[Rfam]
This 307-nucleotide sequence from Sulfolobus acidocaldarius belongs to the Rfam family "Archaeal signal recognition particle RNA". The sequence is in the family's curated seed alignment. Its family is annotated with signal recognition particle, plasma membrane targeting and SRP-dependent cotranslational protein targeting to membrane, signal sequence recognition in the Gene Ontology. Clan: SRP clan. Lineage of the source: Archaea > Thermoproteati > Sulfolobales > Sulfolobus > Sulfolobus acidocaldarius. The family's RNA type in Rfam is non-coding RNA gene.

RNA sequence: UGGUCAGGUAGGGUGGAGGGUCUCGCCAGCCCUUAUACCCACAUGGCGCAACGUGGGCACCAGUAACUCCUAUGCUAUAAUACCUGCUCUUCGAGAUCCCAGUCUAACUAUGAUCAUCGCCCGACGGGGCGAGAUAGUCGUGGGUUCCCUUUCUGGAGGGAGAGGGAAUUCCACGUUGACCGGGGGAACCGGCCAGGCCCGGAAGGGAGCAACCGUGCCCGGCUAUCCGCGUUCGUCGGUCUCCGAUAGGAGGAAGACUGGGGGUAAAUCUCGGGGAGUAAGGGUUAUGGCAUAGGGGAGCUGACCA
Numbered sequence: 001u002g003g004u005c006a007g008g009u010a011g012g013g014u015g016g017a018g019g020g021u022c023u024c025g026c027c028a029g030c031c032c033u034u035a036u037a038c039c040c041a042c043a044u045g046g047c048g049c050a051a052c053g054u055g056g057g058c059a060c061c062a063g064u065a066a067c068u069c070c071u072a073u074g075c076u077a078u079a080a081u082a083c084c085u086g087c088u089c090u091u092c093g094a095g096a097u098c099c100c101a102g103u104c105u106a107a108c109u110a111u112g113a114u115c116a117u118c119g120c121c122c123g124a125c126g127g128g129g130c131g132a133g134a135u136a137g138u139c140g141u142g143g144g145u146u147c148c149c150u151u152u153c154u155g156g157a158g159g160g161a162g163a164g165g166g167a168a169u170u171c172c173a174c175g176u177u178g179a180c181c182g183g184g185g186g187a188a189c190c191g192g193c194c195a196g197g198c199c200c201g202g203a204a205g206g207g208a209g210c211a212a213c214c215g216u217g218c219c220c221g222g223c224u225a226u227c228c229g230c231g232u233u234c235g236u237c238g239g240u241c242u243c244c245g246a247u248a249g250g251a252g253g254a255a256g257a258c259u260g261g262g263g264g265u266a267a268a269u270c271u272c273g274g275g276g277a278g279u280a281a282g283g284g285u286u287a288u289g290g291c292a293u294a295g296g297g298g299a300g301c302u303g304a305c306c307a
Base pairs, nucleotide, nucleotide: 001307002306003305004304005303006302007301009299012061013060014059015058016034017033018032019031020030021029038057039056040055041054042053067298068297069296070295071294072293073292075290076289077288078287079286080285081283085280086279087278088277089276090275091274092273093272094271095270097263098262099261100260101259102258103257104256105255108253109252114248116247117246118245119244121239122238123237124236125235126234127233128232129230130229131228133227134226135225136224137177139175140174141173142172143171144169145168146167147166148165149164150163151162152161153160154159180222181221182220184219185218190215191214192213198207199206200205